[Rfam]
About this RNA
The family of this 132-nucleotide RNA sequence from Salmo trutta is "Small nucleolar RNA SNORA57". The family has 26 seed sequences and 1,736 matches in Rfam 15.1. U99 belongs to the H/ACA class of snoRNAs which are thought to guide the sites of modification of uridines to pseudouridines, the target for this family is unknown. Rfam links the family to the GO terms RNA processing and nucleolus. The family's RNA type in Rfam is H/ACA-box small nucleolar RNA. The organism belongs to Salmo, within Eukaryota. On this family, see Vitali et al., Nucleic Acids Res 2003: "Identification of 13 novel human modification guide RNAs".
RNA sequence: UCUCCAUUUCUUGGCAUACAUAUAGUUGCUCAGUAUUUGUGUAAUGUAUGGAGUUCGAACAAAGCCAGUACUCUGUCUUUGGUACCAGUGUGGUAUCGUCUCCUGGUCCUAUCCUCAAUUGCUGGCACACUU
Numbered sequence: 001u002c003u004c005c006a007u008u009u010c011u012u013g014g015c016a017u018a019c020a021u022a023u024a025g026u027u028g029c030u031c032a033g034u035a036u037u038u039g040u041g042u043a044a045u046g047u048a049u050g051g052a053g054u055u056c057g058a059a060c061a062a063a064g065c066c067a068g069u070a071c072u073c074u075g076u077c078u079u080u081g082g083u084a085c086c087a088g089u090g091u092g093g094u095a096u097c098g099u100c101u102c103c104u105g106g107u108c109c110u111a112u113c114c115u116c117a118a119u120u121g122c123u124g125g126c127a128c129a130c131u132u
Stems, first nucleotide, its partner, number of pairs: 002053004015041004020036001022034001066124005085106004090101001
Dot-bracket structure: .((((.........((((.(.(...........).).))))........))))............(((((..............((((.(..........).)))).............)))))........